The record is a 147-nucleotide RNA sequence from Mesorhizobium denitrificans, which matches "Alphaproteobacterial sRNA BjrC1505" in Rfam.
Rfam classes the family as a small RNA.
A search with the family's covariance model found it, with a score of 62 bits.

[Rfam]
RNA sequence: CCUUGACUCUUUAACACCUUGUUAAGCUUCACCUGUGCAUAGUGAGGCCAUCCAGUGAUCUGGAUUCUUACCGAGUGGUUUGGACCACUUUGUUUGACGCCUCCCUGUUAGACUCCUGAGAGCCGCCCCUCCCGCGGCUCUUUUUUU
Numbered sequence: 001c002c003u004u005g006a007c008u009c010u011u012u013a014a015c016a017c018c019u020u021g022u023u024a025a026g027c028u029u030c031a032c033c034u035g036u037g038c039a040u041a042g043u044g045a046g047g048c049c050a051u052c053c054a055g056u057g058a059u060c061u062g063g064a065u066u067c068u069u070a071c072c073g074a075g076u077g078g079u080u081u082g083g084a085c086c087a088c089u090u091u092g093u094u095u096g097a098c099g100c101c102u103c104c105c106u107g108u109u110a111g112a113c114u115c116c117u118g119a120g121a122g123c124c125g126c127c128c129c130u131c132c133c134g135c136g137g138c139u140c141u142u143u144u145u146u147u
Stems, first nucleotide, its partner, number of pairs: 001047004005017001023039001026036002051064004073090006096109004118142009